[Rfam]
A member of the RNA family "Small nucleolar RNA SNORA40" from Nannospalax galili, 129 nucleotides long. The match comes from Rfam's covariance-model search (60 bits). For this family Rfam cites "Mapping to nucleotide resolution of pseudouridine residues in large subunit ribosomal RNAs from representative eukaryotes, prokaryotes, archaebacteria, mitochondria and chloroplasts" (Ofengand and Bakin, J Mol Biol, 1997). Rfam describes the family as follows. The snoRNA ACA 40 belongs to the H/ACA family of snoRNAs and guides the pseudouridylation of 28S rRNA subunit at position U4565. Rfam links the family to the GO terms RNA processing and nucleolus. Rfam 15.1 lists 2,550 matches to the family in 517 species. The family's RNA type in Rfam is H/ACA-box small nucleolar RNA.

RNA sequence: UGUGUGUGUGUGUGUGUUUGUUCAAGGGCUGAACAAAGGCAUGAAAGACAGGCGCAAAAGUAAAUUCUUUUUUGCAGCCCAGAAACUCACUAUUCAGUAUGAGUUUUAAAACAGACAAGGAGUAUGAGA
Numbered sequence: 001u002g003u004g005u006g007u008g009u010g011u012g013u014g015u016g017u018u019u020g021u022u023c024a025a026g027g028g029c030u031g032a033a034c035a036a037a038g039g040c041a042u043g044a045a046a047g048a049c050a051g052g053c054g055c056a057a058a059a060g061u062a063a064a065u066u067c068u069u070u071u072u073u074g075c076a077g078c079c080c081a082g083a084a085a086c087u088c089a090c091u092a093u094u095c096a097g098u099a100u101g102a103g104u105u106u107u108a109a110a111a112c113a114g115a116c117a118a119g120g121a122g123u124a125u126g127a128g129a
Base pairs, nucleotide, nucleotide: 001056002055003054004053005052007050008049009048011046014040015039017037018036019035020034021033066124068122070120071119072118073117074116081107082106084105085104086103087102088101089100